The record is a 142-nucleotide sequence from Manganibacter manganicus, which matches "Alphaproteobacterial sRNA ar7" in Rfam. By type it is a small RNA. The literature on the family includes a 2012 paper in RNA Biol by del Val et al., "A survey of sRNA families in alpha-proteobacteria". The pairing is the family consensus, mapped onto this sequence.

RNA sequence: CAUCGGCAGUUUUCGCCGAAGUCCGGAGUAAGGCCCGUCCCCCGCCUAUACCGGACACUGCGGCAGCCUAACCCCCCUCUCCGGGCUGCCGCAUCGUUUGAGUAAGGCCGCCGUGGUUUCCCCUCCGCCACGGCGGCAUUUU
Numbered sequence: 001c002a003u004c005g006g007c008a009g010u011u012u013u014c015g016c017c018g019a020a021g022u023c024c025g026g027a028g029u030a031a032g033g034c035c036c037g038u039c040c041c042c043c044g045c046c047u048a049u050a051c052c053g054g055a056c057a058c059u060g061c062g063g064c065a066g067c068c069u070a071a072c073c074c075c076c077c078u079c080u081c082c083g084g085g086c087u088g089c090c091g092c093a094u095c096g097u098u099u100g101a102g103u104a105a106g107g108c109c110g111c112c113g114u115g116g117u118u119u120c121c122c123c124u125c126c127g128c129c130a131c132g133g134c135g136g137c138a139u140u141u142u
Stems, first nucleotide, its partner, number of pairs: 022055005028049001032046003059093010108136010

It scores 120 bits against the family's covariance model.